[Rfam]
RNA sequence: CUGGGUUACGGUGACAUGUACCCUCGGACUUGGUCGGGCAUGUUAGUAGGUGCAUUGUGUGCUUUGGCUGGCGUUCUUACAAUUGCAAUGCCCGUCCCAGUUAUUGUUAACAAC
Numbered sequence: 001c002u003g004g005g006u007u008a009c010g011g012u013g014a015c016a017u018g019u020a021c022c023c024u025c026g027g028a029c030u031u032g033g034u035c036g037g038g039c040a041u042g043u044u045a046g047u048a049g050g051u052g053c054a055u056u057g058u059g060u061g062c063u064u065u066g067g068c069u070g071g072c073g074u075u076c077u078u079a080c081a082a083u084u085g086c087a088a089u090g091c092c093c094g095u096c097c098c099a100g101u102u103a104u105u106g107u108u109a110a111c112a113a114c
Stems, first nucleotide, its partner, number of pairs: 002113001004111001008107004013102003018097001020095002037077002040074001049063003